Description: Shown here is a 127-nucleotide RNA from Nothoprocta ornata, a member of the family "Small nucleolar RNA SNORA65". It scores 72 bits against the family's covariance model. For this family Rfam cites "RNomics: an experimental approach that identifies 201 candidates for novel, small, non-messenger RNAs in mouse" (Huttenhofer et al., EMBO J, 2001). U65 belongs to the H/ACA class of snoRNAs which are thought to guide the sites of modification of uridines to pseudouridines. The organism belongs to Nothoprocta, within Eukaryota.

RNA sequence: CCCGCCACUAUACCUGUCCUGACGCCCGUGGCUGGUAUAUUCCAGUGGUGAGCUAAGAGCGAGCGCCGGCCAGGAAGCAGCUCUCCUCUGCCGUGAGGAGACCUGUGCCGAGAGGCUGGGAACACAU
Numbered sequence: 001c002c003c004g005c006c007a008c009u010a011u012a013c014c015u016g017u018c019c020u021g022a023c024g025c026c027c028g029u030g031g032c033u034g035g036u037a038u039a040u041u042c043c044a045g046u047g048g049u050g051a052g053c054u055a056a057g058a059g060c061g062a063g064c065g066c067c068g069g070c071c072a073g074g075a076a077g078c079a080g081c082u083c084u085c086c087u088c089u090g091c092c093g094u095g096a097g098g099a100g101a102c103c104u105g106u107g108c109c110g111a112g113a114g115g116c117u118g119g120g121a122a123c124a125c126a127u
Base pairs, nucleotide, nucleotide: 005048006047007046008045009044018035019034021032023030024029064120066118068117070114071112073109074108078105079104080103082101083100086097087096088095
Dot-bracket structure: ....(((((........((.(.((....)).).))........)))))...............(.(.(.((.((...(((.((..(((......)))..)).)))..))..).)..)).).......